[Rfam]
RNA sequence: GCCCUAGAUGUAAAGAUUUGAAUAUUCAGGUAGAUUUGAGGCUAUCCUGGGGCUU
Numbered sequence: 001g002c003c004c005u006a007g008a009u010g011u012a013a014a015g016a017u018u019u020g021a022a023u024a025u026u027c028a029g030g031u032a033g034a035u036u037u038g039a040g041g042c043u044a045u046c047c048u049g050g051g052g053c054u055u
Stems, first nucleotide, its partner, number of pairs: 001053007010025003021037001027040001029046004035041001
Shown here is a 55-nucleotide RNA sequence from Ligilactobacillus salivarius, a member of the family "salivarius-1 RNA". By type it is a small RNA. NCBI's taxonomy places the organism under Bacteria, Bacillati, Lactobacillales, Lactobacillaceae, Ligilactobacillus salivarius. The sequence is in the family's curated seed alignment.